[Rfam]
Nucleotides: 252
Base pairs, nucleotide, nucleotide: 002222003221004220005219007217008216011213015193017155018154019153020152021151022150023149024148026145027144028143033055034054037052038051039050040049062124063123064122065121066120068118075088076087077086098116099115100114165182197209198208199207229252230251232250233249234248235247236246237245238244239243
Number, partner (000 for none) and nucleotide at each position: 001000g002222g003221c004220a005219a006000u007217a008216g009000u010000a011213g012000g013000g014000a015193a016000a017155c018154u019153c020152a021151a022150g023149g024148g025000u026145g027144g028143u029000c030000a031000g032000c033055u034054c035000a036000u037052c038051c039050c040049c041000g042000a043000a044000g045000a046000a047000a048000g049040g050039g051038g052037g053000c054034g055033g056000u057000g058000c059000u060000g061000u062124g063123a064122c065121g066120g067000u068118a069000u070000c071000u072000g073000a074000a075088g076087c077086a078000u079000u080000a081000a082000u083000g084000u085000u086077u087076g088075c089000a090000u091000g092000u093000a094000c095000g096000u097000u098116u099115g100114c101000a102000a103000g104000c105000u106000u107000a108000a109000u110000c111000g112000u113000a114100g115099c116098a117000a118068u119000c120066c121065u122064g123063u124062c125000a126000u127000u128000u129000a130000a131000c132000c133000a134000a135000a136000a137000a138000a139000a140000a141000u142000a143028a144027u145026c146000c147000a148024c149023c150022c151021u152020u153019g154018a155017g156000c157000u158000g159000a160000c161000c162000g163000g164000c165182a166000u167000c168000g169000g170000g171000u172000g173000a174000a175000u176000u177000a178000u179000a180000c181000c182165u183000a184000u185000u186000c187000u188000a189000a190000a191000g192000c193015u194000g195000g196000c197209c198208c199207c200000c201000u202000u203000g204000a205000a206000a207199g208198g209197g210000a211000a212000c213011u214000g215000u216008c217007u218000a219005u220004u221003g222002c223000a224000g225000u226000g227000a228000c229252c230251g231000g232250u233249u234248g235247g236246u237245g238244u239243u240000a241000c242000c243239a244238g245237c246236a247235c248234c249233a250232g251230c252229g